[Rfam]
Rfam assigns this 308-nucleotide RNA from Salmonella enterica to the family "MicL sRNA".
RNA sequence: UAUGGCUGGUGCAGGGGUUCGUGCCGAUAACCUGCAGAAUUUCCUCAAUGCCGGAGUACGGGAAGUACACAGUUCCGCCGGAGUCUUACUGGCUUCGCCGAUGCGCUAUCGCAAUCAGGGGUUAUCGAUGUCUGCCGAUGUUCAGGCGGACGAGUAUUCCCGUUAUAGGGUAGAGGGGGCGGCGGUCGCUGAAAUGAAAGGAGUCAUUGUUCACCAUCAGACCAAAUGAUUUUUACCGUUGCAUCAUGUCGCCCAAUAUGAUGCUUGCUCGUACCAGGCCCCUGCCAAUUCAACAGGGGCCUUUUUUU
Numbered sequence: 001u002a003u004g005g006c007u008g009g010u011g012c013a014g015g016g017g018u019u020c021g022u023g024c025c026g027a028u029a030a031c032c033u034g035c036a037g038a039a040u041u042u043c044c045u046c047a048a049u050g051c052c053g054g055a056g057u058a059c060g061g062g063a064a065g066u067a068c069a070c071a072g073u074u075c076c077g078c079c080g081g082a083g084u085c086u087u088a089c090u091g092g093c094u095u096c097g098c099c100g101a102u103g104c105g106c107u108a109u110c111g112c113a114a115u116c117a118g119g120g121g122u123u124a125u126c127g128a129u130g131u132c133u134g135c136c137g138a139u140g141u142u143c144a145g146g147c148g149g150a151c152g153a154g155u156a157u158u159c160c161c162g163u164u165a166u167a168g169g170g171u172a173g174a175g176g177g178g179g180c181g182g183c184g185g186u187c188g189c190u191g192a193a194a195u196g197a198a199a200g201g202a203g204u205c206a207u208u209g210u211u212c213a214c215c216a217u218c219a220g221a222c223c224a225a226a227u228g229a230u231u232u233u234u235a236c237c238g239u240u241g242c243a244u245c246a247u248g249u250c251g252c253c254c255a256a257u258a259u260g261a262u263g264c265u266u267g268c269u270c271g272u273a274c275c276a277g278g279c280c281c282c283u284g285c286c287a288a289u290u291c292a293a294c295a296g297g298g299g300c301c302u303u304u305u306u307u308u
Stems, first nucleotide, its partner, number of pairs: 003276003009270001011268005016041003022036003026032001044083003050078002053076005061068001084130001086128002091122001093120003100116003103112003132140001144163001146161001148159003166263002170259003177254008185245001188242002193240004199234010215220001277301008
A reference for the family is Guo et al. (2014), "MicL, a new sigmaE-dependent sRNA, combats envelope stress by repressing synthesis of Lpp, the major outer membrane lipoprotein", Genes Dev. Rfam describes the family as follows. mRNA-interfering complementary RNA regulator of Lpp. Transcription factor sigma E dependant sRNA. Together with MicA and RybB it allows sigma E to repress the synthesis of all abundant outer membrane proteins in response to stress. Gene Ontology term of the family: translation repressor activity.